Rfam assigns this 75-nucleotide RNA sequence from Diabrotica balteata to the family "MIR397 microRNA precursor family". For this family Rfam cites "High throughput approaches reveal splicing of primary microRNA transcripts and tissue specific expression of mature microRNAs in Vitis vinifera" (Mica et al., BMC Genomics, 2009). Gene Ontology terms of the family: RISC complex and miRNA-mediated post-transcriptional gene silencing. The family has 7 seed sequences and 496 matches in Rfam 15.1.
RNA sequence: AGAAAAGACCUGAUCGAAUGCAUCUUUGAUGCUCUCUCUUUAAGAGCAUCAAAGAUGCAUUCGAUCAGGUCUUUU
Numbered sequence: 001a002g003a004a005a006a007g008a009c010c011u012g013a014u015c016g017a018a019u020g021c022a023u024c025u026u027u028g029a030u031g032c033u034c035u036c037u038c039u040u041u042a043a044g045a046g047c048a049u050c051a052a053a054g055a056u057g058c059a060u061u062c063g064a065u066c067a068g069g070u071c072u073u074u075u
Stems, first nucleotide, its partner, number of pairs: 006072006013065016030048006